[Rfam]
DUF805b RNA: a 36-nucleotide sequence. Rfam's curators put it in the seed alignment. The family's consensus secondary structure is taken from published work.

RNA sequence: AACGGACAAGCCGAAAACCGUUUCAAAGAGUAGGCA
Numbered sequence: 001a002a003c004g005g006a007c008a009a010g011c012c013g014a015a016a017a018c019c020g021u022u023u024c025a026a027a028g029a030g031u032a033g034g035c036a
Stems, first nucleotide, its partner, number of pairs: 002021004010035003

The family's RNA type in Rfam is cis-regulatory element.